[Rfam]
RNA sequence: GGGAUGGAGAGUUUGAUCCUGGCUCAGGGGGAACGCUGGCGGCGUGCCUAAUGCAUGCAAGUCGGACGGGAGCACGCUCUGGCGUGCCGACCGUGGCGGACGGGUGCGUAACACGUGGGGAACCUGCCCGGGUGCGGGGGAUAACCCGGGGAAACUCGGGCUAAUACCCCAUACGCUUGGCUGGCGGUGGGCCGGCCAAGGAAAGGCGCAGGCGACUGUGCUGUGCUCGGAGGGCCCUGCGGCCUAUCAGCUAGACGGUAGGGUAACGGCCUACCGUGGCGAUGACGGGUAGCUGGUCUGAGAGGAUGGCCAGCCACACGGGCACUGAGACACGGGCCCGACUCCUACGGGAGGCAGCAGCAGGGAAUCUUCCGCAAUGGGGGCAACCCUGACGGAGCGACGCCGCGUGCGGGAGGAAGCCCUUCGGGGUGUAAACCGCUGUUCGGGGGGACGAUCGAGCGACGGUACCCUCGGAGCAAGUCCCGGCUAACUACGUGCCAGCAGCCGCGGUAAGACGUAGGGGGCGAGCGUUACCCGGAGUCACUG
Numbered sequence: 001g002g003g004a005u006g007g008a009g010a011g012u013u014u015g016a017u018c019c020u021g022g023c024u025c026a027g028g029g030g031g032a033a034c035g036c037u038g039g040c041g042g043c044g045u046g047c048c049u050a051a052u053g054c055a056u057g058c059a060a061g062u063c064g065g066a067c068g069g070g071a072g073c074a075c076g077c078u079c080u081g082g083c084g085u086g087c088c089g090a091c092c093g094u095g096g097c098g099g100a101c102g103g104g105u106g107c108g109u110a111a112c113a114c115g116u117g118g119g120g121a122a123c124c125u126g127c128c129c130g131g132g133u134g135c136g137g138g139g140g141a142u143a144a145c146c147c148g149g150g151g152a153a154a155c156u157c158g159g160g161c162u163a164a165u166a167c168c169c170c171a172u173a174c175g176c177u178u179g180g181c182u183g184g185c186g187g188u189g190g191g192c193c194g195g196c197c198a199a200g201g202a203a204a205g206g207c208g209c210a211g212g213c214g215a216c217u218g219u220g221c222u223g224u225g226c227u228c229g230g231a232g233g234g235c236c237c238u239g240c241g242g243c244c245u246a247u248c249a250g251c252u253a254g255a256c257g258g259u260a261g262g263g264u265a266a267c268g269g270c271c272u273a274c275c276g277u278g279g280c281g282a283u284g285a286c287g288g289g290u291a292g293c294u295g296g297u298c299u300g301a302g303a304g305g306a307u308g309g310c311c312a313g314c315c316a317c318a319c320g321g322g323c324a325c326u327g328a329g330a331c332a333c334g335g336g337c338c339c340g341a342c343u344c345c346u347a348c349g350g351g352a353g354g355c356a357g358c359a360g361c362a363g364g365g366a367a368u369c370u371u372c373c374g375c376a377a378u379g380g381g382g383g384c385a386a387c388c389c390u391g392a393c394g395g396a397g398c399g400a401c402g403c404c405g406c407g408u409g410c411g412g413g414a415g416g417a418a419g420c421c422c423u424u425c426g427g428g429g430u431g432u433a434a435a436c437c438g439c440u441g442u443u444c445g446g447g448g449g450g451a452c453g454a455u456c457g458a459g460c461g462a463c464g465g466u467a468c469c470c471u472c473g474g475a476g477c478a479a480g481u482c483c484c485g486g487c488u489a490a491c492u493a494c495g496u497g498c499c500a501g502c503a504g505c506c507g508c509g510g511u512a513a514g515a516c517g518u519a520g521g522g523g524g525c526g527a528g529c530g531u532u533a534c535c536c537g538g539a540g541u542c543a544c545u546g
Stems, first nucleotide, its partner, number of pairs: 009025005027536003032532006039406006045399002047364001052362003056359003061097003066094003072087006104317003114241007123234002128230007136170004145160006176200010205222006243289003250280003255277008292314004296307004319340005342353004370396001372395003378391005409439004419430004444473006453463001480525005491520005501508002
Shown here is a 546-nucleotide part of an RNA from Thermomicrobium roseum, a member of the family "Bacterial small subunit ribosomal RNA". A reference for the family is Cannone et al. (2002), "The comparative RNA web (CRW) site: an online database of comparative sequence and structure information for ribosomal, intron, and other RNAs", BMC Bioinformatics. Its family is annotated with structural constituent of ribosome and ribosome in the Gene Ontology.